[Rfam]
Rfam assigns this 61-nucleotide RNA sequence from Nicotiana attenuata to the family "Plastid-psbN 5UTR RNA".
From the family's description: Plastid psbN is a non-coding RNA (ncRNA) recognised in plastids. It was reported as a conserved 11 stem-loop in the prime untranslated region (5UTR) of psbN genes. It has been reported that the motif is retained in a subset of mature transcripts in barley, which can suggests a possible role in transcript alternative 5 prime processing.
The family's RNA type in Rfam is cis-regulatory element.
The family has 63 seed sequences and 2,345 matches in Rfam 15.1.
It scores 78 bits against the family's covariance model.
On this family, see Richter et al., Plant Commun 2023: "Retrograde signaling in plants: A critical review focusing on the GUN pathway and beyond".
RNA sequence: AGUUACACCCAUCAAAAGAGUAGUUCCCCACCCAGGAACUACUUUGCCAUAUUCCGAAUUC
Numbered sequence: 001a002g003u004u005a006c007a008c009c010c011a012u013c014a015a016a017a018g019a020g021u022a023g024u025u026c027c028c029c030a031c032c033c034a035g036g037a038a039c040u041a042c043u044u045u046g047c048c049a050u051a052u053u054c055c056g057a058a059u060u061c
Stems, first nucleotide, its partner, number of pairs: 017045011